[Rfam]
RNA sequence: AUACUUACUUGGUAGGGGAGAUACUGUGAUCAUGAAGGUGGUUUUCCCAGGACAAGUUUAUCCAUGGCCCUCUGAUGUGCUUUCUCUGAAAUUUCCCCUAGUAUGGGAAACUCGACUACAUAAUUUGUGGUAAUGAGGGACUGCAUUCAUACUCUUCCAUA
Numbered sequence: 001a002u003a004c005u006u007a008c009u010u011g012g013u014a015g016g017g018g019a020g021a022u023a024c025u026g027u028g029a030u031c032a033u034g035a036a037g038g039u040g041g042u043u044u045u046c047c048c049a050g051g052a053c054a055a056g057u058u059u060a061u062c063c064a065u066g067g068c069c070c071u072c073u074g075a076u077g078u079g080c081u082u083u084c085u086c087u088g089a090a091a092u093u094u095c096c097c098c099u100a101g102u103a104u105g106g107g108a109a110a111c112u113c114g115a116c117u118a119c120a121u122a123a124u125u126u127g128u129g130g131u132a133a134u135g136a137g138g139g140a141c142u143g144c145a146u147u148c149a150u151a152c153u154c155u156u157c158c159a160u161a
Stems, first nucleotide, its partner, number of pairs: 012119004016048006023042005049087003054083001055081003059077003063074001091112001092110003096106002135160001137158004143152001145150001

Overview: A member of the RNA family "U1 spliceosomal RNA" from Vulpes vulpes, 161 nucleotides long. Rfam links the family to the GO terms pre-mRNA 5'-splice site binding, U1 snRNP and mRNA 5'-splice site recognition. The family has 100 seed sequences and 40,184 matches in Rfam 15.1. NCBI's taxonomy places the organism under Eukaryota, Gnathostomata, Teleostomi, Sarcopterygii, Vulpes. About the family: U1 is a small nuclear RNA (snRNA) component of the spliceosome (involved in pre-mRNA splicing). Its 5' end forms complementary base pairs with the 5' splice junction, thus defining the 5' donor site of an intron. There are significant differences in sequence and secondary structure between metazoan and yeast U1 snRNAs, the latter being much longer (568 nucleotides as compared to 164 nucleotides in human). Nevertheless, secondary structure predictions suggest that all U1 snRNAs share a 'common core' consisting of helices I, II, the proximal region of III, and IV. This family does not contain the larger yeast sequences. It scores 95 bits against the family's covariance model. The literature on the family includes a 1997 paper in Nucleic Acids Res by Zwieb, "The uRNA database". The family's consensus secondary structure is taken from published work. It is annotated as a spliceosomal small nuclear RNA.